Shown here is a 96-nucleotide sequence from Intestinibacter bartlettii, a member of the family "Glycine riboswitch aptamer".
[Rfam]
RNA sequence: AUAGGAUACUCUGGAGAGACCUUUUUGAUAAGGCGCCGAAGGGGCAAAAGCUAUUAGCUAGCUCAAUCUCUCAGGCAAAAGGACAGAGCUUUAACC
Numbered sequence: 001a002u003a004g005g006a007u008a009c010u011c012u013g014g015a016g017a018g019a020c021c022u023u024u025u026u027g028a029u030a031a032g033g034c035g036c037c038g039a040a041g042g043g044g045c046a047a048a049a050g051c052u053a054u055u056a057g058c059u060a061g062c063u064c065a066a067u068c069u070c071u072c073a074g075g076c077a078a079a080a081g082g083a084c085a086g087a088g089c090u091u092u093a094a095c096c
Base pairs, nucleotide, nucleotide: 006091009088010087011086012085013084020033021032022031023030035076036075037074038072039071042070043069044068049063050062051061052060053059